This 75-nucleotide RNA from Streptomyces alanosinicus belongs to the Rfam family "ASpks TB sRNA". It is annotated as an antisense RNA. Pairs were carried over by alignment from the consensus structure, which is taken from published work. The match comes from Rfam's covariance-model search (77 bits).
[Rfam]
RNA sequence: CUUCAGGGAGCCCAGCCAGAGCGGCUUGUCCUCGUCCCGGUCCUGGCCGUACGUGGCGAGGACGGCCUGGGCCUC
Numbered sequence: 001c002u003u004c005a006g007g008g009a010g011c012c013c014a015g016c017c018a019g020a021g022c023g024g025c026u027u028g029u030c031c032u033c034g035u036c037c038c039g040g041u042c043c044u045g046g047c048c049g050u051a052c053g054u055g056g057c058g059a060g061g062a063c064g065g066c067c068u069g070g071g072c073c074u075c
Base pairs, nucleotide, nucleotide: 014026015025016024017023031071032070033069038065043060044059047056048055049054